The record is a 102-nucleotide RNA sequence from Bacillaceae bacterium SAS-127, which matches "pan motif" in Rfam.
The base pairs follow the family's consensus structure, which is taken from published work.
RNA sequence: CGGGCAGUAUCAAAUGGAGCUGCACCUGAUUGAUAUUUUUAGCUUAUGGUGAAUUAAAUACGCGAAAGUCUGCCUUGAUCCGCAAUGGACAGGGACAGAGGG
Numbered sequence: 001c002g003g004g005c006a007g008u009a010u011c012a013a014a015u016g017g018a019g020c021u022g023c024a025c026c027u028g029a030u031u032g033a034u035a036u037u038u039u040u041a042g043c044u045u046a047u048g049g050u051g052a053a054u055u056a057a058a059u060a061c062g063c064g065a066a067a068g069u070c071u072g073c074c075u076u077g078a079u080c081c082g083c084a085a086u087g088g089a090c091a092g093g094g095a096c097a098g099a100g101g102g
Stems, first nucleotide, its partner, number of pairs: 002026002004023005010018002070098003073094005079089003
Record summary: Lineage of the source: Bacteria > Bacillati > Bacillota > Bacilli > Bacillaceae. It scores 63 bits against the family's covariance model.